[Rfam]
Description
A member of the RNA family "Clostridiales-1 RNA" from [Ruminococcus] lactaris, 167 nucleotides long. The family's consensus secondary structure is taken from published work. Rfam 15.1 lists 1,172 matches to the family in 137 species. Lineage of the source: Bacteria > Clostridia > Lachnospirales > Mediterraneibacter > [Ruminococcus] lactaris. Rfam classes the family as a small RNA.
RNA sequence: UGAUACUAGGGUGAAAAGGUAUGAAUCCAUAUGAGCCUGCUCAUAAGUGGAUAAAAGACCUUUGAACCCGUCCCAAUCUGAGCAUAAAAUGGAAUUGUAAUCCUGAGAUAUGCGAAUAGUGGGAUGGAUUAUGGGAGUGCGUAGCACCGAACAAUCCAUAGGUAUCA
Number, nucleotide and partner (000 for none) at each position: 001u167002g166003a165004u164005a163006c162007u161008a000009g000010g068011g067012u066013g000014a000015a000016a000017a061018g060019g059020u058021a000022u056023g000024a000025a052026u051027c050028c049029a048030u047031a044032u043033g042034a041035g040036c000037c000038u000039g000040c035041u034042c033043a032044u031045a000046a000047g030048u029049g028050g027051a026052u025053a000054a000055a000056a022057g000058a020059c019060c018061u017062u000063u000064g000065a000066a012067c011068c010069c000070g000071u000072c123073c122074c121075a120076a000077u118078c000079u116080g000081a000082g113083c112084a111085u110086a000087a000088a000089a000090u000091g000092g103093a000094a101095u100096u000097g000098u000099a000100a095101u094102c000103c092104u000105g000106a000107g000108a000109u000110a085111u084112g083113c082114g000115a000116a079117u000118a077119g000120u075121g074122g073123g072124a000125u000126g157127g156128a155129u154130u153131a000132u151133g000134g000135g000136a000137g147138u146139g145140c144141g000142u000143a000144g140145c139146a138147c137148c000149g000150a000151a132152c000153a130154a129155u128156c127157c126158a000159u000160a000161g007162g006163u005164a004165u003166c002167a001